[Rfam]
RNA sequence: UUGCGGUGCUGAAUUAGAGAUCGGCGCCGCGUUUUAUGAACUUAAUGCUUUUAGGAGCGCACAAUGUCUCUAAGCACUGAAGCUGUUGCAAAAAUCGUUGCUGAAUUUGGCCGUGAUGAG
Numbered sequence: 001u002u003g004c005g006g007u008g009c010u011g012a013a014u015u016a017g018a019g020a021u022c023g024g025c026g027c028c029g030c031g032u033u034u035u036a037u038g039a040a041c042u043u044a045a046u047g048c049u050u051u052u053a054g055g056a057g058c059g060c061a062c063a064a065u066g067u068c069u070c071u072a073a074g075c076a077c078u079g080a081a082g083c084u085g086u087u088g089c090a091a092a093a094a095u096c097g098u099u100g101c102u103g104a105a106u107u108u109g110g111c112c113g114u115g116a117u118g119a120g
Stems, first nucleotide, its partner, number of pairs: 007026006049074003054071004
The family of this 120-nucleotide sequence from Plesiomonas shigelloides is "Ribosomal S15 leader". Clan: Ribosomal Protein S15 Leader clan. The organism belongs to Plesiomonas shigelloides, within Bacteria. The base pairs follow the family's consensus structure, which is taken from published work. On this family, see Benard et al., Biochimie 1996: "Pseudoknot and translational control in the expression of the S15 ribosomal protein". The match comes from Rfam's covariance-model search (82 bits). Rfam classes the family as a cis-regulatory leader.